A member of the RNA family "c-di-AMP riboswitch aptamer (ydaO/yuaA leader)" from Cohnella herbarum, 141 nucleotides long. Gene Ontology terms of the family: cyclic-di-AMP binding and regulation of gene expression. NCBI's taxonomy places the organism under Bacteria, Bacillati, Caryophanales, Paenibacillaceae, Cohnella.
RNA sequence: AAUCAAAAAUUGCCGAGUUCCCGCACAACGGGGAACGGGGGAACCAUCAACACGGGUGAAUUGGCUUUGCUUCAUACGAGCCAUAGGGGAACCUUCUACCGAACCCUCCAGCUAACCUCGUAGGCAUUGGAAGGAGUCACC
Numbered sequence: 001a002a003u004c005a006a007a008a009a010u011u012g013c014c015g016a017g018u019u020c021c022c023g024c025a026c027a028a029c030g031g032g033g034a035a036c037g038g039g040g041g042a043a044c045c046a047u048c049a050a051c052a053c054g055g056g057u058g059a060a061u062u063g064g065c066u067u068u069g070c071u072u073c074a075u076a077c078g079a080g081c082c083a084u085a086g087g088g089g090a091a092c093c094u095u096c097u098a099c100c101g102a103a104c105c106c107u108c109c110a111g112c113u114a115a116c117c118u119c120g121u122a123g124g125c126a127u128u129g130g131a132a133g134g135a136g137u138c139a140c141c
Stems, first nucleotide, its partner, number of pairs: 011126004018034006035121006054106003062083006086100002089097001